[Rfam]
RNA sequence: GCACCCGCCUUGUCCCCGCUCCUCGCUGUGCAGUGCAGGACUGGGGGCACUUGGUGCUACAGCACAGCAGUGGAAAUCCAGAUGGGUUCUUCUUCACUGGUUUGGGACUCGUCUCUACACCUCUGCAACACCC
Numbered sequence: 001g002c003a004c005c006c007g008c009c010u011u012g013u014c015c016c017c018g019c020u021c022c023u024c025g026c027u028g029u030g031c032a033g034u035g036c037a038g039g040a041c042u043g044g045g046g047g048c049a050c051u052u053g054g055u056g057c058u059a060c061a062g063c064a065c066a067g068c069a070g071u072g073g074a075a076a077u078c079c080a081g082a083u084g085g086g087u088u089c090u091u092c093u094u095c096a097c098u099g100g101u102u103u104g105g106g107a108c109u110c111g112u113c114u115c116u117a118c119a120c121c122u123c124u125g126c127a128a129c130a131c132c133c
Base pairs, nucleotide, nucleotide: 001057002056003055004054005053013047014046015045016044017043018042021039022038067126068125069124070123072121080114081113082112083111084110085109086108087107094105095104096103
This 133-nucleotide RNA from Sylvia borin belongs to the Rfam family "Small nucleolar RNA SNORA55". Pairs were carried over by alignment from the consensus structure, which was predicted with PFOLD. The family has 29 seed sequences and 1,476 matches in Rfam 15.1. ACA55 is a member of the H/ACA class of snoRNA that guide the sites of modification of uridines to pseudouridines.